This 104-nucleotide RNA sequence from Proteiniclasticum aestuarii belongs to the Rfam family "Guanidine-I riboswitch aptamer". Its family is annotated with regulation of gene expression in the Gene Ontology. The match comes from Rfam's covariance-model search (69 bits). The base pairs follow the family's consensus structure. Rfam describes the family as follows. This family represents a conserved RNA structure found upstream of the ykkC and yxkD genes in Bacillus subtilis and related genes in other bacteria.
RNA sequence: UGAAAGUGUAUCUAGGGUUCCGUUCUCUUUUAAAAGAGAAGCUGGACCGAGCGAUACAGACAUUGACUUCAAUGUCACACCGAUGGGAGAAAAGCCCGGACGGA
Numbered sequence: 001u002g003a004a005a006g007u008g009u010a011u012c013u014a015g016g017g018u019u020c021c022g023u024u025c026u027c028u029u030u031u032a033a034a035a036g037a038g039a040a041g042c043u044g045g046a047c048c049g050a051g052c053g054a055u056a057c058a059g060a061c062a063u064u065g066a067c068u069u070c071a072a073u074g075u076c077a078c079a080c081c082g083a084u085g086g087g088a089g090a091a092a093a094g095c096c097c098g099g100a101c102g103g104a
Stems, first nucleotide, its partner, number of pairs: 007058006015048002020045002022042001023040006059076007078099001080102001085097003